[Rfam]
RNA sequence: UUUGGAUGGGACACAUCCUAGUACAACGAAUCUGGACAUGAGGCAUGUCCAGAUUCGUUGUACUAGGAUGUGUCCCAUCCAAA
Numbered sequence: 001u002u003u004g005g006a007u008g009g010g011a012c013a014c015a016u017c018c019u020a021g022u023a024c025a026a027c028g029a030a031u032c033u034g035g036a037c038a039u040g041a042g043g044c045a046u047g048u049c050c051a052g053a054u055u056c057g058u059u060g061u062a063c064u065a066g067g068a069u070g071u072g073u074c075c076c077a078u079c080c081a082a083a
Stems, first nucleotide, its partner, number of pairs: 001083008010074007018066021
Rfam assigns this 83-nucleotide RNA from Leersia perrieri to the family "MIR814 microRNA precursor family". Taxonomically the source falls in Leersia (Eukaryota, Embryophyta, Liliopsida, Poaceae). Pairs were carried over by alignment from the consensus structure, which was predicted with RNAalifold.